[Rfam]
RNA sequence: UGGUGCCCAACGUGGGGCUCAAAUACUGGGGACAAUGUGAGGGAGACGCCAGAGAAAAAGGGGUGCACACCCGCUUAAUCUCAAGCAAUUCGGAGACGUGCCACGGGAGCCUGUCGCGACCAAACUGAAAGUAAGUCAGGCUGUCCGAAUCAUGGGGCAAGAAUUAAGCCAGCAUCAGAUUUAUGUCAUACAGUUAAGGAAAGCUCUCAAGACAAGAGGAGUAAAGGUUAAGACUGAGGAUUUAUUUCAUUUCUUUGAUUUUGUAAAGGACAUUUGUCCCU
Numbered sequence: 001u002g003g004u005g006c007c008c009a010a011c012g013u014g015g016g017g018c019u020c021a022a023a024u025a026c027u028g029g030g031g032a033c034a035a036u037g038u039g040a041g042g043g044a045g046a047c048g049c050c051a052g053a054g055a056a057a058a059a060g061g062g063g064u065g066c067a068c069a070c071c072c073g074c075u076u077a078a079u080c081u082c083a084a085g086c087a088a089u090u091c092g093g094a095g096a097c098g099u100g101c102c103a104c105g106g107g108a109g110c111c112u113g114u115c116g117c118g119a120c121c122a123a124a125c126u127g128a129a130a131g132u133a134a135g136u137c138a139g140g141c142u143g144u145c146c147g148a149a150u151c152a153u154g155g156g157g158c159a160a161g162a163a164u165u166a167a168g169c170c171a172g173c174a175u176c177a178g179a180u181u182u183a184u185g186u187c188a189u190a191c192a193g194u195u196a197a198g199g200a201a202a203g204c205u206c207u208c209a210a211g212a213c214a215a216g217a218g219g220a221g222u223a224a225a226g227g228u229u230a231a232g233a234c235u236g237a238g239g240a241u242u243u244a245u246u247u248c249a250u251u252u253c254u255u256u257g258a259u260u261u262u263g264u265a266a267a268g269g270a271c272a273u274u275u276g277u278c279c280c281u
Base pairs, nucleotide, nucleotide: 006031007030008029012026013025014024036048037047038046085132086131090128091127099122102118104116105115106114140158141157144156145155146154147153166207168204169203216256217255218254219253220252221251225243226242227241228240229239266281268279269278270277271276
The family of this 281-nucleotide sequence from Nannospalax galili is "Mason-Pfizer monkey virus packaging signal".
The match comes from Rfam's covariance-model search (151 bits).
Pairs were carried over by alignment from the consensus structure, which was predicted with PFOLD.
It is annotated as a cis-regulatory element.
Rfam describes the family as follows. This family represents a group of sequences that are related to the Mason-Pfizer monkey virus (MPMV) packaging signal.